The family of this 148-nucleotide RNA from Populus trichocarpa is "MIR396 microRNA precursor family". Rfam's curators put it in the seed alignment. NCBI's taxonomy places the organism under Eukaryota, Euphyllophyta, Spermatophyta, eudicotyledons, Populus. The base pairs follow the family's consensus structure, which was predicted with WAR.

RNA sequence: GGUCAUGCUUUUCCACAGCUUUCUUGAACUUCUUUGCCUUGCUUAAUCUGUGUAUAUAUAGAUCACUACAUGUACAGCUCCUAUAUAUAUAAAUAUAUGUAUGUAUAGCGCCAUGGAAGCUCAAGAAAGCUGUGGGAGAACAUGGCAA
Numbered sequence: 001g002g003u004c005a006u007g008c009u010u011u012u013c014c015a016c017a018g019c020u021u022u023c024u025u026g027a028a029c030u031u032c033u034u035u036g037c038c039u040u041g042c043u044u045a046a047u048c049u050g051u052g053u054a055u056a057u058a059u060a061g062a063u064c065a066c067u068a069c070a071u072g073u074a075c076a077g078c079u080c081c082u083a084u085a086u087a088u089a090u091a092a093a094u095a096u097a098u099g100u101a102u103g104u105a106u107a108g109c110g111c112c113a114u115g116g117a118a119g120c121u122c123a124a125g126a127a128a129g130c131u132g133u134g135g136g137a138g139a140a141c142a143u144g145g146c147a148a
Base pairs, nucleotide, nucleotide: 003145004144005143006142007141013135014134015133017131018130019129020128021127022126024124025123026122027121029119030118031117032116033115